[Rfam]
RNA sequence: CGUAACGUAAAGUAACGUAAAGUAACGUAACGUUACGUCACGUUACCUAUCGUAACUUACGUAACGUAAAGUACGUAACGUUACCUAACGUAACUUACGUUACGUAACGUACGUAACGUUACGUUACGUAACUUACGUCACGUAACUUACGUUACGUUACGUAACUUAAAGUAACUUACGUAACGCUACGUAACGCAAUGUAACGUAACGGUUAUGUAACAUUACGGUUAUGUAACAUUACGUUACGUUACCUU
Numbered sequence: 001c002g003u004a005a006c007g008u009a010a011a012g013u014a015a016c017g018u019a020a021a022g023u024a025a026c027g028u029a030a031c032g033u034u035a036c037g038u039c040a041c042g043u044u045a046c047c048u049a050u051c052g053u054a055a056c057u058u059a060c061g062u063a064a065c066g067u068a069a070a071g072u073a074c075g076u077a078a079c080g081u082u083a084c085c086u087a088a089c090g091u092a093a094c095u096u097a098c099g100u101u102a103c104g105u106a107a108c109g110u111a112c113g114u115a116a117c118g119u120u121a122c123g124u125u126a127c128g129u130a131a132c133u134u135a136c137g138u139c140a141c142g143u144a145a146c147u148u149a150c151g152u153u154a155c156g157u158u159a160c161g162u163a164a165c166u167u168a169a170a171g172u173a174a175c176u177u178a179c180g181u182a183a184c185g186c187u188a189c190g191u192a193a194c195g196c197a198a199u200g201u202a203a204c205g206u207a208a209c210g211g212u213u214a215u216g217u218a219a220c221a222u223u224a225c226g227g228u229u230a231u232g233u234a235a236c237a238u239u240a241c242g243u244u245a246c247g248u249u250a251c252c253u254u
Stems, first nucleotide, its partner, number of pairs: 001171001009050001011048001012046006022036006055072003078134001080132005087125008095116005101111003135162004140157006179242004185236001187234003197223005

Rfam assigns this 254-nucleotide RNA from Paulinella micropora to the family "Aggregatibacter sRNA JA03". On this family, see Amarasinghe et al., Mol Oral Microbiol 2012: "Novel iron-regulated and Fur-regulated small regulatory RNAs in Aggregatibacter actinomycetemcomitans". The family's RNA type in Rfam is small RNA. It scores 47 bits against the family's covariance model. The source organism's lineage runs through Eukaryota, Cercozoa, Silicofilosea, Paulinellidae and Paulinella.